Source information: Acido-Lenti-1 RNA: a 45-nucleotide RNA sequence from Arundinibacter roseus. The source organism's lineage runs through Bacteria, Pseudomonadati, Bacteroidota, Cytophagales and Arundinibacter. Rfam classes the family as a small RNA.
RNA sequence: CGUGGGGCUGCACCCCACGCUGAUGGAUUUCGCCCUUUCAGGGCU
Numbered sequence: 001c002g003u004g005g006g007g008c009u010g011c012a013c014c015c016c017a018c019g020c021u022g023a024u025g026g027a028u029u030u031c032g033c034c035c036u037u038u039c040a041g042g043g044c045u
Stems, first nucleotide, its partner, number of pairs: 001019007032044005